[Rfam]
RNA sequence: GUGCUGUAAUGGCGCUAAUUCGGAAGGUAGUGCAUCCUUCCAGAUGGCCGAGAUUCUUCAGAAUACUUUCCUCAAAGGUUUCGUGUUCGAAUCCUGAGUACACCAUCUAUUGAUGCAGCGAAGGCUAUAUUAGUAAUGGUUGUGAAAAGUGGCGGUAUCGUUCGAGGGGAGCAUCAUCCAGCAGAACACCGUCCGGCUUGGGUAUGUGAAUACGAGGAAACCUAGGGGUCUGAAUGGUCUUGGAAAGAAGGUAGCUAUCAACCGACUUU
Dot-bracket structure: ((((.......))))..(.((((..((((((..((((((.........(((((((.((((((.......(((...((((((((((((((.((.((((((.(((.(((((((((((..((....))..))))))))..))).)))......(((((....((((....(((......)))....)))).)))))..)))).)).)).))))))))...)))))))))..)))))).)))))))..)))..))).))))))..)))).)..
Numbered sequence: 001g002u003g004c005u006g007u008a009a010u011g012g013c014g015c016u017a018a019u020u021c022g023g024a025a026g027g028u029a030g031u032g033c034a035u036c037c038u039u040c041c042a043g044a045u046g047g048c049c050g051a052g053a054u055u056c057u058u059c060a061g062a063a064u065a066c067u068u069u070c071c072u073c074a075a076a077g078g079u080u081u082c083g084u085g086u087u088c089g090a091a092u093c094c095u096g097a098g099u100a101c102a103c104c105a106u107c108u109a110u111u112g113a114u115g116c117a118g119c120g121a122a123g124g125c126u127a128u129a130u131u132a133g134u135a136a137u138g139g140u141u142g143u144g145a146a147a148a149g150u151g152g153c154g155g156u157a158u159c160g161u162u163c164g165a166g167g168g169g170a171g172c173a174u175c176a177u178c179c180a181g182c183a184g185a186a187c188a189c190c191g192u193c194c195g196g197c198u199u200g201g202g203u204a205u206g207u208g209a210a211u212a213c214g215a216g217g218a219a220a221c222c223u224a225g226g227g228g229u230c231u232g233a234a235u236g237g238u239c240u241u242g243g244a245a246a247g248a249a250g251g252u253a254g255c256u257a258u259c260a261a262c263c264g265a266c267u268u269u
Stems, first nucleotide, its partner, number of pairs: 001015004018267001020265004026259006034252003037247003049242007057234006070226003076223006082214008091205002094202002096199004101144003105140003108135008118125002151193005160187004168179003
Rfam assigns this 269-nucleotide sequence from Pneumocystis murina to the family "Fungal signal recognition particle RNA". Rfam 15.1 lists 748 matches to the family in 741 species. Rfam links the family to the GO terms SRP-dependent cotranslational protein targeting to membrane, signal sequence recognition, signal recognition particle, endoplasmic reticulum targeting and signal recognition particle, plasma membrane targeting. The match comes from Rfam's covariance-model search (79 bits). The organism belongs to Pneumocystis murina, within Eukaryota.